Rfam assigns this 24-nucleotide RNA from Gloeothece verrucosa to the family "CRISPR RNA direct repeat element". It scores 35 bits against the family's covariance model. Gene Ontology term of the family: defense response.
Nucleotides: 024
Stems, first nucleotide, its partner, number of pairs: 006023007
Number, partner (000 for none) and nucleotide at each position: 001000a002000g003000c004000g005000a006023a007022g008021c009020c010019c011018g012017c013000c014000u015000u016000c017012g018011c019010g020009g021008g022007c023006u024000a

The family has 3 seed sequences and 331 matches in Rfam 15.1.